[Rfam]
RNA sequence: GCUCCCAUUUGACUACCACGUUUUCUCCCAAUAAUAGAUUUUGGUGGCUAUGCUUAUGGGAUAGAUUAAAACUGCCAUGAUCUGAAGAGGGAGGAUUUGCUUGUGUCCUCCUUCUAUAUGAGAUGGCUGAACAGAAAGUU
Numbered sequence: 001g002c003u004c005c006c007a008u009u010u011g012a013c014u015a016c017c018a019c020g021u022u023u024u025c026u027c028c029c030a031a032u033a034a035u036a037g038a039u040u041u042u043g044g045u046g047g048c049u050a051u052g053c054u055u056a057u058g059g060g061a062u063a064g065a066u067u068a069a070a071a072c073u074g075c076c077a078u079g080a081u082c083u084g085a086a087g088a089g090g091g092a093g094g095a096u097u098u099g100c101u102u103g104u105g106u107c108c109u110c111c112u113u114c115u116a117u118a119u120g121a122g123a124u125g126g127c128u129g130a131a132c133a134g135a136a137a138g139u140u
Stems, first nucleotide, its partner, number of pairs: 004060004016047004074127004092115004